RNA sequence: GGAGAAGCGAUGUGGCAAUCAUCGCCACCGAAAGUCAAAGGGUUCUGCCGCACGGAUGCACCGCGGCAGGGUAGUCGGGCCUAAGGGGACGGCCACGGCCAGACCCGAUGGACAACAGGUGAAUAGUCCUGUACCGUGGAGUGGUCGCUUGACCAAUGCCGGAUGCUGAGGGGUAGUCGCCGCGGCGAGACGAGCGCCGUCCAAGCCGGUAGGGAGCAGGGCGAAGGAAAUCCGUCCUGCGCUGACCGAGAGGUGAGUGAAAGGGGGUUGGGGAACCAACCGCCAAUGGCGAGGCGCCUGUGCAGCCACGAAAGGCCGGCUCGGGAGACCACCCACGCCCGUACCGCAAACCGACACAGGUAGACAGGUCGAGGAGACCAAGGUGGA
Numbered sequence: 001g002g003a004g005a006a007g008c009g010a011u012g013u014g015g016c017a018a019u020c021a022u023c024g025c026c027a028c029c030g031a032a033a034g035u036c037a038a039a040g041g042g043u044u045c046u047g048c049c050g051c052a053c054g055g056a057u058g059c060a061c062c063g064c065g066g067c068a069g070g071g072u073a074g075u076c077g078g079g080c081c082u083a084a085g086g087g088g089a090c091g092g093c094c095a096c097g098g099c100c101a102g103a104c105c106c107g108a109u110g111g112a113c114a115a116c117a118g119g120u121g122a123a124u125a126g127u128c129c130u131g132u133a134c135c136g137u138g139g140a141g142u143g144g145u146c147g148c149u150u151g152a153c154c155a156a157u158g159c160c161g162g163a164u165g166c167u168g169a170g171g172g173g174u175a176g177u178c179g180c181c182g183c184g185g186c187g188a189g190a191c192g193a194g195c196g197c198c199g200u201c202c203a204a205g206c207c208g209g210u211a212g213g214g215a216g217c218a219g220g221g222c223g224a225a226g227g228a229a230a231u232c233c234g235u236c237c238u239g240c241g242c243u244g245a246c247c248g249a250g251a252g253g254u255g256a257g258u259g260a261a262a263g264g265g266g267g268u269u270g271g272g273g274a275a276c277c278a279a280c281c282g283c284c285a286a287u288g289g290c291g292a293g294g295c296g297c298c299u300g301u302g303c304a305g306c307c308a309c310g311a312a313a314g315g316c317c318g319g320c321u322c323g324g325g326a327g328a329c330c331a332c333c334c335a336c337g338c339c340c341g342u343a344c345c346g347c348a349a350a351c352c353g354a355c356a357c358a359g360g361u362a363g364a365c366a367g368g369u370c371g372a373g374g375a376g377a378c379c380a381a382g383g384u385g386g387a
Base pairs, nucleotide, nucleotide: 007025008024009023010022011021012020026385027384028383029382034365035364036363040345041344045069046068047067048066049065050064054062055061076341077340078339079338080111081110085106086105087104091100092099093098115132116131117130118129119128135337136336137335138334139333141332142331143330144329145328146327153325154324158320159319160318161317162316165306166305167304168303171299172298173297177292178291179290180289182200183199184198185197186196187195201266202265205254206253207252212247213246216240217239218238219237220236221235222234226232268286269285270284271283272281273280351360352359367379368378369377370376
Rfam assigns this 387-nucleotide part of an RNA from Chloroflexus aurantiacus to the family "Bacterial large subunit ribosomal RNA". The source organism's lineage runs through Bacteria, Chloroflexota, Chloroflexales, Chloroflexus and Chloroflexus aurantiacus. Rfam's curators put it in the seed alignment. The family is grouped with related families in Rfam's "LSU clan".